[Rfam]
RNA sequence: GUGCCCCCGGGUCUCGUGAUCGUCUUCUCAACUUUCACCCCGGGGGCGUGUCCACCAGAAGGCCCCCGCGAGGACGUGACUCGCGGGGGCCUUCU
Numbered sequence: 001g002u003g004c005c006c007c008c009g010g011g012u013c014u015c016g017u018g019a020u021c022g023u024c025u026u027c028u029c030a031a032c033u034u035u036c037a038c039c040c041c042g043g044g045g046g047c048g049u050g051u052c053c054a055c056c057a058g059a060a061g062g063c064c065c066c067c068g069c070g071a072g073g074a075c076g077u078g079a080c081u082c083g084c085g086g087g088g089g090c091c092u093u094c095u
Stems, first nucleotide, its partner, number of pairs: 001049010016038004022032002057095016
Record summary:
Shown here is a 95-nucleotide sequence from Streptomyces sp. ICC1, a member of the family "sodF sRNA". It scores 74 bits against the family's covariance model.